The record is a 75-nucleotide sequence from Trypanosoma rangeli, which matches "Trypanosomatid snoRNA TB10Cs5H2" in Rfam. NCBI's taxonomy places the organism under Eukaryota, Kinetoplastea, Trypanosomatida, Trypanosomatidae, Herpetosoma. Its family is annotated with RNA processing and nucleolus in the Gene Ontology. The literature on the family includes a 2008 paper in BMC Bioinformatics by Myslyuk et al., "Psiscan: a computational approach to identify H/ACA-like and AGA-like non-coding RNA in trypanosomatid genomes". Pairs were carried over by alignment from the consensus structure, which was predicted with WAR.
RNA sequence: GGAGCAGGCAACGUCUGUACUAUGUGGGAGUUCGCUGUUUUUUCCAUCUGCAUCGUGCUGUAGAAGCCUGCGAGA
Number, nucleotide and partner (000 for none) at each position: 001g000002g000003a000004g071005c070006a069007g068008g067009c066010a000011a000012c000013g000014u000015c000016u000017g058018u057019a056020c000021u000022a000023u052024g000025u000026g000027g000028g000029a000030g000031u000032u000033c000034g000035c000036u000037g000038u000039u000040u000041u000042u000043u000044c000045c000046a000047u000048c000049u000050g000051c000052a023053u000054c000055g000056u019057g018058c017059u000060g000061u000062a000063g000064a000065a000066g009067c008068c007069u006070g005071c004072g000073a000074g000075a000